[Rfam]
The family of this 60-nucleotide sequence from Calothrix sp. 336/3 is "Nitrogen stress-induced RNA 1". It is annotated as a small RNA. Rfam 15.1 lists 962 matches to the family in 163 species. The pairing is the family consensus, mapped onto this sequence. Taxonomically the source falls in Calothrix (Bacteria, Cyanobacteriota, Nostocales, Calotrichaceae).
RNA sequence: UAGUAGAUGCACCCUGAUAACUCACUCCCCUAGUAGCUUUAGCUGCGAGGGGCUUUUUUU
Number, nucleotide and partner (000 for none) at each position: 001u000002a000003g012004u011005a000006g000007a000008u000009g000010c000011a004012c003013c000014c000015u000016g000017a000018u000019a000020a000021c000022u000023c000024a000025c000026u000027c052028c051029c050030c049031u048032a000033g046034u045035a044036g043037c042038u000039u000040u000041a000042g037043c036044u035045g034046c033047g000048a031049g030050g029051g028052g027053c000054u000055u000056u000057u000058u000059u000060u000